[Rfam]
RNA sequence: AAGCAAUUGAGGAGCUGUAACCUUCGGGCGGUAGCAUG
Numbered sequence: 001a002a003g004c005a006a007u008u009g010a011g012g013a014g015c016u017g018u019a020a021c022c023u024u025c026g027g028g029c030g031g032u033a034g035c036a037u038g
Base pairs, nucleotide, nucleotide: 009024010023011022012021

Annotation
The record is a 38-nucleotide sequence from Photobacterium aquimaris, which matches "JUMPstart RNA" in Rfam. NCBI's taxonomy places the organism under Bacteria, Pseudomonadota, Gammaproteobacteria, Vibrionales, Photobacterium. It scores 41 bits against the family's covariance model. Pairs were carried over by alignment from the consensus structure, which is taken from published work.